The family of this 122-nucleotide RNA sequence from Xanthomarina arctica is "Bacteroidete tryptophan peptide leader RNA".
RNA sequence: GACACAUAUUAAAAACAAAAAUGAACACAAUUUUAAAUCAUACUUGGUGGUGGAACUUUCGAAACUUACAUUCGUGAAGUAAUCCUAUCGUAUAUUUAAAACUCAAUAUAUAAAGGCUUGUC
Numbered sequence: 001g002a003c004a005c006a007u008a009u010u011a012a013a014a015a016c017a018a019a020a021a022u023g024a025a026c027a028c029a030a031u032u033u034u035a036a037a038u039c040a041u042a043c044u045u046g047g048u049g050g051u052g053g054a055a056c057u058u059u060c061g062a063a064a065c066u067u068a069c070a071u072u073c074g075u076g077a078a079g080u081a082a083u084c085c086u087a088u089c090g091u092a093u094a095u096u097u098a099a100a101a102c103u104c105a106a107u108a109u110a111u112a113a114a115g116g117c118u119u120g121u122c
Stems, first nucleotide, its partner, number of pairs: 033099003040095003045090003049086002052083001055080005060074001062072002
The source organism's lineage runs through Bacteria, Pseudomonadati, Flavobacteriia, Flavobacteriales and Xanthomarina. Pairs were carried over by alignment from the consensus structure, which is taken from published work. A search with the family's covariance model found it, with a score of 57 bits.